[Rfam]
RNA sequence: UGCAAGUGAUGUUAACUUUUUGCUGUCUUAAAUACACGUGGUGACAACCACCAAGAUCGCUGAUGCA
Numbered sequence: 001u002g003c004a005a006g007u008g009a010u011g012u013u014a015a016c017u018u019u020u021u022g023c024u025g026u027c028u029u030a031a032a033u034a035c036a037c038g039u040g041g042u043g044a045c046a047a048c049c050a051c052c053a054a055g056a057u058c059g060c061u062g063a064u065g066c067a
Base pairs, nucleotide, nucleotide: 001067002066003065004064

Rfam assigns this 67-nucleotide RNA sequence from Thinocorus orbignyianus to the family "Small nucleolar RNA SNORD24". A search with the family's covariance model found it, with a score of 52 bits.